[Rfam]
RNA sequence: AUGGUGACAUGGCAUAAAGCCAAGGAGUGAGGGUCCUGGACUCAUUAGACCAUAACUUGAACUGAUUUGCAUCUCAUUUU
Numbered sequence: 001a002u003g004g005u006g007a008c009a010u011g012g013c014a015u016a017a018a019g020c021c022a023a024g025g026a027g028u029g030a031g032g033g034u035c036c037u038g039g040a041c042u043c044a045u046u047a048g049a050c051c052a053u054a055a056c057u058u059g060a061a062c063u064g065a066u067u068u069g070c071a072u073c074u075c076a077u078u079u080u
Base pairs, nucleotide, nucleotide: 004075006073007072010022011021012020013019027070028069029068030067